This 154-nucleotide RNA sequence from Fertoeibacter niger belongs to the Rfam family "Ruegeria cis2 sRNA". Its family is annotated with regulation of gene expression in the Gene Ontology. The base pairs follow the family's consensus structure, which was predicted with RNAfold. Rfam classes the family as a small RNA.
[Rfam]
RNA sequence: CGAACUGUAGCGCGGGUAAUAGUCGAGAAAGAUAAAGCCGCGCCCCUGGUCGAUGGUGUGAAACAGCGGGUUCCAGUCAAACAUCGCCAGCAUGUAGCCAGGCAGGGUGUUGGCGACGAACAUCUUUCCUGACGCGAUCAUGUUGGCGCGCAUG
Numbered sequence: 001c002g003a004a005c006u007g008u009a010g011c012g013c014g015g016g017u018a019a020u021a022g023u024c025g026a027g028a029a030a031g032a033u034a035a036a037g038c039c040g041c042g043c044c045c046c047u048g049g050u051c052g053a054u055g056g057u058g059u060g061a062a063a064c065a066g067c068g069g070g071u072u073c074c075a076g077u078c079a080a081a082c083a084u085c086g087c088c089a090g091c092a093u094g095u096a097g098c099c100a101g102g103c104a105g106g107g108u109g110u111u112g113g114c115g116a117c118g119a120a121c122a123u124c125u126u127u128c129c130u131g132a133c134g135c136g137a138u139c140a141u142g143u144u145g146g147c148g149c150g151c152a153u154g
Stems, first nucleotide, its partner, number of pairs: 004033001006032001008030001011027001013025003037057004041052002044049001064154002066151003070082003086147009098134001101130002104126005110119003